[Rfam]
Small nucleolar RNA SNORA25: a 128-nucleotide RNA sequence from Colobus angolensis. A search with the family's covariance model found it, with a score of 111 bits. From the family's description: ACA25 is a member of the H/ACA class of snoRNA that guide the sites of modification of uridines to pseudouridines. The family's RNA type in Rfam is H/ACA-box small nucleolar RNA. The family's consensus secondary structure was predicted with RNAfold.
RNA sequence: AGGUUAUAUCAAAGAGGGCUCAUGAAGCUAUGAAACCAAAAGCUCUUAAUGCUAUGACCAAAGACUGAAGCUCUCUAUCGAAUGCCAUAGCACUCAGUAAUGUUAUGUUUUCCUGAGGCAAUAUAAGA
Numbered sequence: 001a002g003g004u005u006a007u008a009u010c011a012a013a014g015a016g017g018g019c020u021c022a023u024g025a026a027g028c029u030a031u032g033a034a035a036c037c038a039a040a041a042g043c044u045c046u047u048a049a050u051g052c053u054a055u056g057a058c059c060a061a062a063g064a065c066u067g068a069a070g071c072u073c074u075c076u077a078u079c080g081a082a083u084g085c086c087a088u089a090g091c092a093c094u095c096a097g098u099a100a101u102g103u104u105a106u107g108u109u110u111u112c113c114u115g116a117g118g119c120a121a122u123a124u125a126a127g128a
Stems, first nucleotide, its partner, number of pairs: 002059006014047007023039001027036001072121001075118002080113001082111001087106006094099001